[Rfam]
RNA sequence: AAUGUUACGAAUUUCCGAGUGAGAUUAUCUAAGGCGAUGCUACGAUGACUUACCUCUGGGUAAAUGAAGAAAUUCUCUUGCCUCCCGAACUUGAAAAGGAAAUUUGCUUUACAUAAG
Numbered sequence: 001a002a003u004g005u006u007a008c009g010a011a012u013u014u015c016c017g018a019g020u021g022a023g024a025u026u027a028u029c030u031a032a033g034g035c036g037a038u039g040c041u042a043c044g045a046u047g048a049c050u051u052a053c054c055u056c057u058g059g060g061u062a063a064a065u066g067a068a069g070a071a072a073u074u075c076u077c078u079u080g081c082c083u084c085c086c087g088a089a090c091u092u093g094a095a096a097a098g099g100a101a102a103u104u105u106g107c108u109u110u111a112c113a114u115a116a117g
Base pairs, nucleotide, nucleotide: 003111004110011103012102013101014100015099016098019053020052021051022050023049025048026047027046028045029044033041034040035039058083059082060081061080062079063078066075067074068073085093
RNA: Molybdenum/Tungsten riboswitch aptamer (Moco RNA motif)